[Rfam]
RNA sequence: UCGGCUCGCGGAGUGCUUGCCGGGGAUCGCCAGCGGUGCUGCCACCGCCCUCCUUCAGUGGAUCGGCCCCCGGAGGCACUCGGCGGGCCGA
Numbered sequence: 001u002c003g004g005c006u007c008g009c010g011g012a013g014u015g016c017u018u019g020c021c022g023g024g025g026a027u028c029g030c031c032a033g034c035g036g037u038g039c040u041g042c043c044a045c046c047g048c049c050c051u052c053c054u055u056c057a058g059u060g061g062a063u064c065g066g067c068c069c070c071c072g073g074a075g076g077c078a079c080u081c082g083g084c085g086g087g088c089c090g091a
Stems, first nucleotide, its partner, number of pairs: 001091009011081008020073006029067003033048006051062003